[Rfam]
RNA sequence: GGUUGGACAGGAAACUGCUUCAAGAUUUUAAGCUUAUUGGGUGGGGAGCU
Numbered sequence: 001g002g003u004u005g006g007a008c009a010g011g012a013a014a015c016u017g018c019u020u021c022a023a024g025a026u027u028u029u030a031a032g033c034u035u036a037u038u039g040g041g042u043g044g045g046g047a048g049c050u
Base pairs, nucleotide, nucleotide: 003023004022005021006019008017009016010015031050032049033048034047035046037044